[Rfam]
RNA: tRNA
Organism: Equus caballus
RNA sequence: GUCCUCUUAGCGCAGCAGGCAGCGCGUCAGUCUCAUAAUCUGAAGGUCCUGAGUUCAAACCUCAGAGAGGGCA
Number, nucleotide and partner (000 for none) at each position: 001g072002u071003c070004c069005u068006c067007u066008u000009a000010g025011c024012g023013c022014a000015g000016c000017a000018g000019g000020c000021a000022g013023c012024g011025c010026g000027u043028c042029a041030g040031u000032c000033u000034c000035a000036u000037a000038a000039u000040c030041u029042g028043a027044a000045g000046g000047u000048c000049c065050u064051g063052a062053g061054u000055u000056c000057a000058a000059a000060c000061c053062u052063c051064a050065g049066a007067g006068a005069g004070g003071g002072c001073a000